[Rfam]
RNA sequence: CUCCUCGAAAACUAUUUAGGUAGUGCCUCAUGUAUCACUGACGGGGGUAAAGCACUGUUAUGGCUAGGGGGUCAUCGCGACUUACCAAACCAUGGCAAACUCUGAAUACCGUCAAGUGCGAGCAUGGGAGACAGUCCUGGGGUGCUAACGUCCUGGGACAAGAGGGAAACAACCCAGACCGCCGUCUAAGGUCCCAAAUGAUCAAUUAAGUGGAAAACGAGGUGGGAAGGCAUAGACAGCCAGGAUGUUGGCUUAGAAGCAGCCAUCAUUUAAAGAAAGCGUAAUAGCUCACUGGUCGAGUCGUCCUGCGCGGAAGAUGUAACGGGGCUCAAAUUGAUAACCGAAGACGCGGAUAUGUACGAUGUACAUAUGGUAGAGGAGCGUUCUGUAAGCCUGUGAAGGUGUCUUGAGAAGGAUGCUGGAGGUAUCAGAAGUGCGAAU
Numbered sequence: 001c002u003c004c005u006c007g008a009a010a011a012c013u014a015u016u017u018a019g020g021u022a023g024u025g026c027c028u029c030a031u032g033u034a035u036c037a038c039u040g041a042c043g044g045g046g047g048u049a050a051a052g053c054a055c056u057g058u059u060a061u062g063g064c065u066a067g068g069g070g071g072u073c074a075u076c077g078c079g080a081c082u083u084a085c086c087a088a089a090c091c092a093u094g095g096c097a098a099a100c101u102c103u104g105a106a107u108a109c110c111g112u113c114a115a116g117u118g119c120g121a122g123c124a125u126g127g128g129a130g131a132c133a134g135u136c137c138u139g140g141g142g143u144g145c146u147a148a149c150g151u152c153c154u155g156g157g158a159c160a161a162g163a164g165g166g167a168a169a170c171a172a173c174c175c176a177g178a179c180c181g182c183c184g185u186c187u188a189a190g191g192u193c194c195c196a197a198a199u200g201a202u203c204a205a206u207u208a209a210g211u212g213g214a215a216a217a218c219g220a221g222g223u224g225g226g227a228a229g230g231c232a233u234a235g236a237c238a239g240c241c242a243g244g245a246u247g248u249u250g251g252c253u254u255a256g257a258a259g260c261a262g263c264c265a266u267c268a269u270u271u272a273a274a275g276a277a278a279g280c281g282u283a284a285u286a287g288c289u290c291a292c293u294g295g296u297c298g299a300g301u302c303g304u305c306c307u308g309c310g311c312g313g314a315a316g317a318u319g320u321a322a323c324g325g326g327g328c329u330c331a332a333a334u335u336g337a338u339a340a341c342c343g344a345a346g347a348c349g350c351g352g353a354u355a356u357g358u359a360c361g362a363u364g365u366a367c368a369u370a371u372g373g374u375a376g377a378g379g380a381g382c383g384u385u386c387u388g389u390a391a392g393c394c395u396g397u398g399a400a401g402g403u404g405u406c407u408u409g410a411g412a413a414g415g416a417u418g419c420u421g422g423a424g425g426u427a428u429c430a431g432a433a434g435u436g437c438g439a440a441u
Stems, first nucleotide, its partner, number of pairs: 001381006011024005026130001027128007035121001036118003039114006050103001051101002056097003060093004067086002069083005134159010164175003179352004184348003190342003199339001201338006218312002222309006229302003239296005245269003250264003270274001275290001279288002353371008382436001384433005392426003401420008
RNA: Bacterial large subunit ribosomal RNA, nucleotides 808 to 1248